[Rfam]
RNA sequence: CGCUGAACCUCGAGAUGGGUUACGGGGCUUAGUCCUUCCUCCGUAUGGCAAUGACUAGAACCGUUACUCAUCUCGAGGUUUCGGU
Numbered sequence: 001c002g003c004u005g006a007a008c009c010u011c012g013a014g015a016u017g018g019g020u021u022a023c024g025g026g027g028c029u030u031a032g033u034c035c036u037u038c039c040u041c042c043g044u045a046u047g048g049c050a051a052u053g054a055c056u057a058g059a060a061c062c063g064u065u066a067c068u069c070a071u072c073u074c075g076a077g078g079u080u081u082c083g084g085u
Base pairs, nucleotide, nucleotide: 003083005081006080007079008078009077010076011075012074013073014072015071016070017069018068019067020066022064023063024062025061028058030057031056032055033054034053036051037050038048039047

Shown here is an 85-nucleotide RNA from Caenorhabditis elegans, a member of the family "mir-61 microRNA precursor family". It is one of the family's seed sequences. Lineage of the source: Eukaryota > Eumetazoa > Protostomia > Rhabditoidea > Caenorhabditis.